[Rfam]
RNA sequence: UUUUAAGUUGUCGAUGUAGAAUACUCAUAUUGAUAAAAUGAUUUGAAUCAUUU
Number, nucleotide and partner (000 for none) at each position: 001u000002u000003u000004u000005a000006a000007g000008u000009u000010g000011u033012c032013g031014a030015u029016g028017u027018a000019g000020a000021a000022u000023a000024c000025u000026c000027a017028u016029a015030u014031u013032g012033a011034u000035a000036a000037a000038a000039u000040g000041a000042u000043u000044u000045g000046a000047a000048u000049c000050a000051u000052u000053u000
RNA: Plastid-atpF group II-D1 intron
Organism: Vitis vinifera